[Rfam]
RNA sequence: UUAUAAGCAAAUUUUGACUUUUUAGGUUCAUUCAAUAAAUGAUGCAUGUGAUCUACAAUCUAGACCACAUGCAUCAUUUAUUGAAUGAAUCUAAAAAGUAGAAAUUUGUUUAUAA
Numbered sequence: 001u002u003a004u005a006a007g008c009a010a011a012u013u014u015u016g017a018c019u020u021u022u023u024a025g026g027u028u029c030a031u032u033c034a035a036u037a038a039a040u041g042a043u044g045c046a047u048g049u050g051a052u053c054u055a056c057a058a059u060c061u062a063g064a065c066c067a068c069a070u071g072c073a074u075c076a077u078u079u080a081u082u083g084a085a086u087g088a089a090u091c092u093a094a095a096a097a098g099u100a101g102a103a104a105u106u107u108g109u110u111u112a113u114a115a
Stems, first nucleotide, its partner, number of pairs: 002114006009107005014101003018098008027089018049067002052064001
The record is a 115-nucleotide RNA from Medicago truncatula, which matches "MIR2593 microRNA precursor family" in Rfam. Its family is annotated with miRNA-mediated post-transcriptional gene silencing and RISC complex in the Gene Ontology. NCBI's taxonomy places the organism under Eukaryota, Euphyllophyta, Magnoliopsida, rosids, Medicago. The match comes from Rfam's covariance-model search (103 bits).